Small nucleolar RNA Z102/R77: an 82-nucleotide sequence from Arachis hypogaea. Rfam classes the family as a C/D-box small nucleolar RNA. Rfam 15.1 lists 1,346 matches to the family in 224 species. On this family, see Chen et al., Nucleic Acids Res 2003: "The high diversity of snoRNAs in plants: identification and comparative study of 120 snoRNA genes from Oryza sativa".
[Rfam]
RNA sequence: GAAUCAAAUGAUGAUUAAUUAUUUCCCUAUUGGUUUGAUUGCCUGGAUGAUGGCUUCUUGUAUUAGCUCUAUCUGAUUAUUC
Numbered sequence: 001g002a003a004u005c006a007a008a009u010g011a012u013g014a015u016u017a018a019u020u021a022u023u024u025c026c027c028u029a030u031u032g033g034u035u036u037g038a039u040u041g042c043c044u045g046g047a048u049g050a051u052g053g054c055u056u057c058u059u060g061u062a063u064u065a066g067c068u069c070u071a072u073c074u075g076a077u078u079a080u081u082c
Base pairs, nucleotide, nucleotide: 002081003080004079037057041054042053043052